[Rfam]
The record is a 145-nucleotide RNA from Drosophila willistoni, which matches "Small nucleolar RNA psi28S-1192" in Rfam. It is annotated as an H/ACA-box small nucleolar RNA. NCBI's taxonomy places the organism under Eukaryota, Protostomia, Arthropoda, Drosophila, Sophophora. Rfam's curators put it in the seed alignment. Rfam's curators write: psi28S-1192 is a member of the H/ACA class of snoRNA. This family is responsible for guiding the modification of uridine 1192 to pseudouridine in Drosophila 28S rRNA.
RNA sequence: UUCGAGUCCAAUCUAAUUCUAUCUUAUGAUCAUUGCCUAAUAAGAUAGACUCGCUUUUGGACUAGAUAAAUUUUCUUCUUUUAUUAUCCUUGUGCUUUGUGUCCUUUUAUCUGACAAGGCACACGAGAAACGUAAAUGAACAAAA
Numbered sequence: 001u002u003c004g005a006g007u008c009c010a011a012u013c014u015a016a017u018u019c020u021a022u023c024u025u026a027u028g029a030u031c032a033u034u035g036c037c038u039a040a041u042a043a044g045a046u047a048g049a050c051u052c053g054c055u056u057u058u059g060g061a062c063u064a065g066a067u068a069a070a071u072u073u074u075c076u077u078c079u080u081u082u083a084u085u086a087u088c089c090u091u092g093u094g095c096u097u098u099g100u101g102u103c104c105u106u107u108u109a110u111c112u113g114a115c116a117a118g119g120c121a122c123a124c125g126a127g128a129a130a131c132g133u134a135a136a137u138g139a140a141c142a143a144a145a
Stems, first nucleotide, its partner, number of pairs: 005063006019048008027039002077139002080136005089127006